[Rfam]
RNA sequence: GCGAUGAAUGGCUUGCAAGGGCGGUCGGCUAGUCUCCCGGGAGGGAGGUGACGCCAUGGAGGUACAAGACGCGAUGACGCUGAUGUUCACGUUCGGCAUGUUUAUUCUCGCUCUGCUCACUUACCUCAAAAAAAAAUAGACCGCCCUCUCGCGUAGGUAUGCGGUCUACUUUAAAUCCCAUAUCCUGUUACAGCCUGCCGCCCUUAAAAGCGGUUAUCGCGCUGAGAGUCGGUUGCCGCCGGCUCUC
Numbered sequence: 001g002c003g004a005u006g007a008a009u010g011g012c013u014u015g016c017a018a019g020g021g022c023g024g025u026c027g028g029c030u031a032g033u034c035u036c037c038c039g040g041g042a043g044g045g046a047g048g049u050g051a052c053g054c055c056a057u058g059g060a061g062g063u064a065c066a067a068g069a070c071g072c073g074a075u076g077a078c079g080c081u082g083a084u085g086u087u088c089a090c091g092u093u094c095g096g097c098a099u100g101u102u103u104a105u106u107c108u109c110g111c112u113c114u115g116c117u118c119a120c121u122u123a124c125c126u127c128a129a130a131a132a133a134a135a136a137u138a139g140a141c142c143g144c145c146c147u148c149u150c151g152c153g154u155a156g157g158u159a160u161g162c163g164g165u166c167u168a169c170u171u172u173a174a175a176u177c178c179c180a181u182a183u184c185c186u187g188u189u190a191c192a193g194c195c196u197g198c199c200g201c202c203c204u205u206a207a208a209a210g211c212g213g214u215u216a217u218c219g220c221g222c223u224g225a226g227a228g229u230c231g232g233u234u235g236c237c238g239c240c241g242g243c244u245c246u247c
Stems, first nucleotide, its partner, number of pairs: 001220005007214001010195004014151002018147004023141001025139001030051001032049001034047005058120001061117004071086003095112003198213004224247010
The record is a 247-nucleotide sequence from Paenibacillus montanisoli, which matches "BsrG" in Rfam.
Gene Ontology terms of the family: autolysis and toxin activity.
The family has 6 seed sequences and 614 matches in Rfam 15.1.
A reference for the family is Saito et al. (2008), "Novel small RNA-encoding genes in the intergenic regions of Bacillus subtilis", Gene.
Taxonomically the source falls in Paenibacillus (Bacteria, Bacillota, Bacilli, Paenibacillaceae).
Rfam describes the family as follows. bsrE, bsrG and bsrH pair through intermolecular interactions with antisense sRNAs. They form type I toxin/antitoxin system that includes an mRNA encoding for a short, toxic peptide (bsrE, bsrG and bsrH) and an antitoxin that is comprised of an antisense RNA. bsrG encodes a 39-amino-acid toxin, and the 180 nucleotide antisense sRNA called SR4 acts as the antitoxin (they overlap by 123 nucleotides). SR4 interaction with the 3'UTR of bsrG RNA promotes bsrG degradation and inhibits its translation. BsrG interferes with cell envelope biosynthesis, causes membrane invaginations and delocalisation of the cell wall synthesis and initiates autolysis. bsrE RNA encodes 30 amino-acid toxin peptide. Its antitoxin gene, SR5 overlaps by 112 nucleotides at the 3' end of bsrE. SR5 also overlaps bsrG from nucleotide 163 to 52 (Rfam overlap check). The antitoxin SR5 promotes bsrE degradation but unlike SR4 it does not directly inhibits toxin mRNA translation.